[Rfam]
RNA sequence: UGGGCAGUAUCCUGCAUGUGAACUGCACCUGAUGAUGUGUUACUAGAUAACUUAAAAUUUAAAAGGUUUCUGCCUAGAUCCGAAAGACGGACCGGGACAGAGGG
Numbered sequence: 001u002g003g004g005c006a007g008u009a010u011c012c013u014g015c016a017u018g019u020g021a022a023c024u025g026c027a028c029c030u031g032a033u034g035a036u037g038u039g040u041u042a043c044u045a046g047a048u049a050a051c052u053u054a055a056a057a058u059u060u061a062a063a064a065g066g067u068u069u070c071u072g073c074c075u076a077g078a079u080c081c082g083a084a085a086g087a088c089g090g091a092c093c094g095g096g097a098c099a100g101a102g103g104g
Stems, first nucleotide, its partner, number of pairs: 002029002004026005010021002070100003073096003077092001079091003

The record is a 104-nucleotide RNA sequence from Neobacillus mesonae, which matches "pan motif" in Rfam.
The source organism's lineage runs through Bacteria, Bacillota, Bacilli, Bacillaceae and Neobacillus.
A search with the family's covariance model found it, with a score of 64 bits.
The base pairs follow the family's consensus structure, which is taken from published work.